[Rfam]
Nucleotides: 089
Stems, first nucleotide, its partner, number of pairs: 001089003005085003010082001011079006018071001020070021
Number, partner (000 for none) and nucleotide at each position: 001089g002088c003087a004000a005085c006084a007083c008000u009000c010082u011079a012078a013077g014076c015075a016074a017000g018071a019000a020070a021069a022068u023067a024066u025065u026064g027063a028062a029061a030060g031059u032058g033057a034056c035055u036054a037053a038052a039051a040050g041000u042000u043000u044000c045000u046000a047000c048000a049000c050040c051039u052038u053037u054036u055035a056034g057033u058032c059031a060030c061029u062028u063027u064026c065025a066024a067023u068022a069021u070020u071018u072000u073000c074016u075015u076014g077013c078012u079011u080000a081000g082010a083007g084006u085005g086000u087003u088002g089001c